This 84-nucleotide sequence from Pogona vitticeps belongs to the Rfam family "Small nucleolar RNA U2-19".
Pairs were carried over by alignment from the consensus structure, which is taken from published work.
RNA sequence: GCUCUGUGAUGAGAAGUAGCCAAAUCUGAGCACCGGAAAGAUCAGCUGGUCUCAAUGGUGCAUGAUCUGUAUACUAUUCUGGGA
Numbered sequence: 001g002c003u004c005u006g007u008g009a010u011g012a013g014a015a016g017u018a019g020c021c022a023a024a025u026c027u028g029a030g031c032a033c034c035g036g037a038a039a040g041a042u043c044a045g046c047u048g049g050u051c052u053c054a055a056u057g058g059u060g061c062a063u064g065a066u067c068u069g070u071a072u073a074c075u076a077u078u079c080u081g082g083g084a
Base pairs, nucleotide, nucleotide: 030061031060032059033058034057039052040051041050042049
Dot-bracket structure: .............................(((((....((((......))))....))))).......................